[Rfam]
RNA sequence: AGAGACUAAGUUCAAGGCCACAGCAGAAGUACUCACGGUGCAGCCCUGUCAGAUUCCAACAAAUUUACAAAUUCUGCU
Dot-bracket structure: ...............[[[...((((((((((.......))).]]].....(((((......))))).....)))))))